[Rfam]
RNA sequence: GGGGAAAUAGUGAUAAUUAGGUAAAACAACAAUCUUGCACAUUGUGAUUCAUGGUUCAAUUCCAUGUUUCUCCA
Numbered sequence: 001g002g003g004g005a006a007a008u009a010g011u012g013a014u015a016a017u018u019a020g021g022u023a024a025a026a027c028a029a030c031a032a033u034c035u036u037g038c039a040c041a042u043u044g045u046g047a048u049u050c051a052u053g054g055u056u057c058a059a060u061u062c063c064a065u066g067u068u069u070c071u072c073c074a
Stems, first nucleotide, its partner, number of pairs: 001073007010027002014025001029045005050066005
The record is a 74-nucleotide sequence from Lachnellula cervina, which matches "tRNA" in Rfam. The match comes from Rfam's covariance-model search (48 bits). Lineage of the source: Eukaryota > saccharomyceta > sordariomyceta > Helotiales > Lachnellula.